[Rfam]
RNA: Plastid-psbA-1 3UTR RNA
RNA sequence: UCGAAGUUUCAUCUACAAUGGAUAAGAUUUUUUGUCUUAGUGUAUACGCAAUCGUGAACCAAAGUAGCAAUACCCAGGCUUGCUUUAGCAAGACAUGGGGUAUUGCUACUUG
Numbered sequence: 001u002c003g004a005a006g007u008u009u010c011a012u013c014u015a016c017a018a019u020g021g022a023u024a025a026g027a028u029u030u031u032u033u034g035u036c037u038u039a040g041u042g043u044a045u046a047c048g049c050a051a052u053c054g055u056g057a058a059c060c061a062a063a064g065u066a067g068c069a070a071u072a073c074c075c076a077g078g079c080u081u082g083c084u085u086u087a088g089c090a091a092g093a094c095a096u097g098g099g100g101u102a103u104u105g106c107u108a109c110u111u112g
Base pairs, nucleotide, nucleotide: 008022009021010020011019012018062111063110064109065108066107067106068105069104070103071102072101073100075097076096077094079092080091081090